Source information: This 110-nucleotide RNA from Gorilla gorilla belongs to the Rfam family "mir-192/215 microRNA precursor family". This family represents the human microRNA (miRNA) precursors mir-192 and mir-215. Animal miRNAs are transcribed as ~70nt precursors and subsequently processed by the Dicer enzyme to give a ~22nt product. In this case the mature sequence comes from the 5' arm of the precursor. The extents of the hairpin precursors are not generally known and are estimated based on hairpin prediction. Rfam links the family to the GO terms miRNA-mediated post-transcriptional gene silencing and RISC complex. On this family, see Lagos-Quintana et al., RNA 2003: "New microRNAs from mouse and human". It is one of the family's seed sequences.
[Rfam]
RNA sequence: AUCAUUCAGAAAUGGUAUACGGGAAAAUGACCUAUGAAUUGACAGACAAUAUAGCUGAGUUUGUCUGUCAUUUCUUUAGGCCAAUAUUCUGUAUGACUGUGCUACUUCAA
Numbered sequence: 001a002u003c004a005u006u007c008a009g010a011a012a013u014g015g016u017a018u019a020c021g022g023g024a025a026a027a028u029g030a031c032c033u034a035u036g037a038a039u040u041g042a043c044a045g046a047c048a049a050u051a052u053a054g055c056u057g058a059g060u061u062u063g064u065c066u067g068u069c070a071u072u073u074c075u076u077u078a079g080g081c082c083a084a085u086a087u088u089c090u091g092u093a094u095g096a097c098u099g100u101g102c103u104a105c106u107u108c109a110a
Stems, first nucleotide, its partner, number of pairs: 002109001004107001009106001028083002031080004036074003040070010